Rfam assigns this 103-nucleotide sequence from Pseudoduganella lurida to the family "traJ-II RNA".
RNA sequence: GGGCAGGAUAGGUGAAGGUGGCCAUGCAGCUGCGCCGCCUGUCCACCUUCACUCCCCUUAUUCGCGCCUGCGGCGCUCAACGUGGAUCCUGCCCUGCGGGGCC
Numbered sequence: 001g002g003g004c005a006g007g008a009u010a011g012g013u014g015a016a017g018g019u020g021g022c023c024a025u026g027c028a029g030c031u032g033c034g035c036c037g038c039c040u041g042u043c044c045a046c047c048u049u050c051a052c053u054c055c056c057c058u059u060a061u062u063c064g065c066g067c068c069u070g071c072g073g074c075g076c077u078c079a080a081c082g083u084g085g086a087u088c089c090u091g092c093c094c095u096g097c098g099g100g101g102c103c
Stems, first nucleotide, its partner, number of pairs: 001094009012052006019045003024040001026038002029035001054085002057082001064076005
The organism belongs to Pseudoduganella, within Bacteria. It is annotated as a cis-regulatory element.